[Rfam]
RNA sequence: AAUGUUUCAUUGGAAAGUCACAGCACAAGCUUUCACAUCGCGACUUCCGUCAGAAAAAUUUUUUUCCGUAAAUUGCGCU
Numbered sequence: 001a002a003u004g005u006u007u008c009a010u011u012g013g014a015a016a017g018u019c020a021c022a023g024c025a026c027a028a029g030c031u032u033u034c035a036c037a038u039c040g041c042g043a044c045u046u047c048c049g050u051c052a053g054a055a056a057a058a059u060u061u062u063u064u065u066c067c068g069u070a071a072a073u074u075g076c077g078c079u
Stems, first nucleotide, its partner, number of pairs: 013047001015046005022079003026075003029041002051068001053066005